Description
The family of this 101-nucleotide RNA sequence from Paenibacillus montaniterrae is "pan motif".
RNA sequence: CAGGCAGUAUUCGUAAGAAACUGCACUGAUUUGUGUAUAUAUCUAAAAUGAAUAUUUAGAAUGCACACUCUGCUCAGAGCCGAAGGGACCGAGACAGAAGG
Numbered sequence: 001c002a003g004g005c006a007g008u009a010u011u012c013g014u015a016a017g018a019a020a021c022u023g024c025a026c027u028g029a030u031u032u033g034u035g036u037a038u039a040u041a042u043c044u045a046a047a048a049u050g051a052a053u054a055u056u057u058a059g060a061a062u063g064c065a066c067a068c069u070c071u072g073c074u075c076a077g078a079g080c081c082g083a084a085g086g087g088a089c090c091g092a093g094a095c096a097g098a099a100g101g
Stems, first nucleotide, its partner, number of pairs: 001028003004024005010019002070097003073093003077089001080087002

The base pairs follow the family's consensus structure, which is taken from published work. It is annotated as a cis-regulatory element. The organism belongs to Paenibacillus, within Bacteria.